[Rfam]
RNA sequence: CCAUAUUUCGGGUUUUGUGCGUGAAUCUAAUAAAACUGUAAUCCACACACACAAAAUGUGGAUUUGUUUCAUGUUAGAUUCACGCACAAACUCGUAAUCUGUCU
Numbered sequence: 001c002c003a004u005a006u007u008u009c010g011g012g013u014u015u016u017g018u019g020c021g022u023g024a025a026u027c028u029a030a031u032a033a034a035a036c037u038g039u040a041a042u043c044c045a046c047a048c049a050c051a052c053a054a055a056a057u058g059u060g061g062a063u064u065u066g067u068u069u070c071a072u073g074u075u076a077g078a079u080u081c082a083c084g085c086a087c088a089a090a091c092u093c094g095u096a097a098u099c100u101g102u103c104u
Stems, first nucleotide, its partner, number of pairs: 002101002005098003011092003015089013029075003
Dot-bracket structure: .((.(((...(((.(((((((((((((.(((.........................................))).))))))))))))))))...))).))...

The record is a 104-nucleotide RNA from Gossypium harknessii, which matches "MIR403 microRNA precursor family" in Rfam. Lineage of the source: Eukaryota > Streptophyta > Streptophytina > Embryophyta > Gossypium. The literature on the family includes a 2009 paper in BMC Genomics by Mica et al., "High throughput approaches reveal splicing of primary microRNA transcripts and tissue specific expression of mature microRNAs in Vitis vinifera".